[Rfam]
RNA sequence: UCAAGUGUGAGGAGUAAGGUUUGAAGGAAGAGGUACUUGGGGUCGAAACUCGGCCAGACUCCCAAGUGCCUUUUC
Number, nucleotide and partner (000 for none) at each position: 001u000002c000003a000004a000005g000006u000007g000008u000009g000010a000011g000012g000013a000014g000015u000016a000017a000018g000019g000020u000021u000022u000023g000024a000025a000026g000027g000028a000029a000030g072031a071032g070033g069034u068035a067036c000037u000038u000039g063040g062041g061042g059043u058044c057045g000046a000047a000048a000049c000050u000051c000052g000053g000054c000055c000056a000057g044058a043059c042060u000061c041062c040063c039064a000065a000066g000067u035068g034069c033070c032071u031072u030073u000074u000075c000
This 75-nucleotide sequence from Limnospira maxima belongs to the Rfam family "Cyano-1 RNA".
Rfam classes the family as a small RNA.
The family has 265 seed sequences and 283 matches in Rfam 15.1.
The base pairs follow the family's consensus structure, which is taken from published work.